[Rfam]
RNA sequence: UCGAAGCCCAAAGCAACUAUUGGUCACUGCACAGGACUAGUGACCCGAUAUACUCUUGUGCGUGUUCCAAUAGUUAUUGUGGGUGCUUCACAUUCAUCG
Dot-bracket structure: ....((((((.(..((((((((..((.((((((.((.................)).))))))))...))))))))..).))))..))............